[Rfam]
RNA: Metazoan signal recognition particle RNA
Organism: Fopius arisanus
RNA sequence: GCUGGGAGUUUGGCGGCUCCUGUAAUCCGGCUACUCGGAGGCUAGUUGUUGUGGAGGAUCUGAGGUCGGGGGUCACUGAGGGUGCGGGAUCCACGUUGACUGGGCGUCCGCACUAAGCUCACCAUCAAUAUGGCCACCCUGGAGGAGUCCAGGGUGGCCAGGUUAGCUAAGGAGAGGCGAACCGGGCCAGAGGGGAAACCCAGCAGCCAAAAGUCUCCGUGGUGGGCAGUAGUGGGAUCGCGCCCGGGAGUGGGACCGCAUUCGCAGCCUGGUCAAUACGAUUCGACCAAUAACUUU
Numbered sequence: 001g002c003u004g005g006g007a008g009u010u011u012g013g014c015g016g017c018u019c020c021u022g023u024a025a026u027c028c029g030g031c032u033a034c035u036c037g038g039a040g041g042c043u044a045g046u047u048g049u050u051g052u053g054g055a056g057g058a059u060c061u062g063a064g065g066u067c068g069g070g071g072g073u074c075a076c077u078g079a080g081g082g083u084g085c086g087g088g089a090u091c092c093a094c095g096u097u098g099a100c101u102g103g104g105c106g107u108c109c110g111c112a113c114u115a116a117g118c119u120c121a122c123c124a125u126c127a128a129u130a131u132g133g134c135c136a137c138c139c140u141g142g143a144g145g146a147g148u149c150c151a152g153g154g155u156g157g158c159c160a161g162g163u164u165a166g167c168u169a170a171g172g173a174g175a176g177g178c179g180a181a182c183c184g185g186g187c188c189a190g191a192g193g194g195g196a197a198a199c200c201c202a203g204c205a206g207c208c209a210a211a212a213g214u215c216u217c218c219g220u221g222g223u224g225g226g227c228a229g230u231a232g233u234g235g236g237a238u239c240g241c242g243c244c245c246g247g248g249a250g251u252g253g254g255a256c257c258g259c260a261u262u263c264g265c266a267g268c269c270u271g272g273u274c275a276a277u278a279c280g281a282u283u284c285g286a287c288c289a290a291u292a293a294c295u296u297u
Stems, first nucleotide, its partner, number of pairs: 001042003004021007026039003044295008056284005064274007076267003080263008090254005096248001100247008108236002111234005117227009127164003131160013167171001174217005185208003192201003